[Rfam]
RNA sequence: GAGUGGCAGGAUGCGGGACCGGGGCGCUGUCUGAGAGGACUACAAUUCUCACAGUGAACCGGUCUCUUUUUCAGCCCCUCA
Dot-bracket structure: .....((.((....(((((((...((((((..(((............)))))))))...)))))))....)).))......
A member of the RNA family "mir-128 microRNA precursor family" from Scleropages formosus, 81 nucleotides long. The organism belongs to Scleropages, within Eukaryota. A search with the family's covariance model found it, with a score of 77 bits.